[Rfam]
RNA: glmS glucosamine-6-phosphate activated ribozyme aptamer
Organism: Vescimonas coprocola
RNA sequence: AUCCCAUCACAAGCGCCAGUGCCUGCCCUCCGGCAGGACAACGAGGAGGAGAGAGGAUCGAGCGUUUCGGCGGAAGCUCUCCCGUGCCGCUUCGGGUGCGUGACGCAGCCGGUAAAUAUGCGGGUGACCGCAAAACAGAGAGGCUGUGACCGGAGUGG
Numbered sequence: 001a002u003c004c005c006a007u008c009a010c011a012a013g014c015g016c017c018a019g020u021g022c023c024u025g026c027c028c029u030c031c032g033g034c035a036g037g038a039c040a041a042c043g044a045g046g047a048g049g050a051g052a053g054a055g056g057a058u059c060g061a062g063c064g065u066u067u068c069g070g071c072g073g074a075a076g077c078u079c080u081c082c083c084g085u086g087c088c089g090c091u092u093c094g095g096g097u098g099c100g101u102g103a104c105g106c107a108g109c110c111g112g113u114a115a116a117u118a119u120g121c122g123g124g125u126g127a128c129c130g131c132a133a134a135a136c137a138g139a140g141a142g143g144c145u146g147u148g149a150c151c152g153g154a155g156u157g158g
Base pairs, nucleotide, nucleotide: 022037023036024035025034026033027032048082049081050080051079052078058070059069060068061067083100084099085098086097087096088095104148105147106146107145108144109143110142119132120131121130122129123128